Glutamine-II riboswitch aptamer: a 53-nucleotide RNA. The literature on the family includes a 2019 paper in Nucleic Acids Res by Huang et al., "Structure and ligand binding of the glutamine-II riboswitch". Pairs were carried over by alignment from the consensus structure, which is taken from published work.
RNA sequence: GUCCGUUCAUCCUUCGGGACGCAUGAUCACCACAGCAUGGAACGGGGUUGUGG
Number, nucleotide and partner (000 for none) at each position: 001g000002u000003c000004c044005g043006u042007u041008c040009a000010u019011c018012c017013u000014u000015c000016g000017g012018g011019a010020c000021g000022c000023a000024u000025g000026a000027u000028c000029a000030c053031c052032a051033c050034a049035g048036c047037a000038u000039g000040g008041a007042a006043c005044g004045g000046g000047g036048u035049u034050g033051u032052g031053g030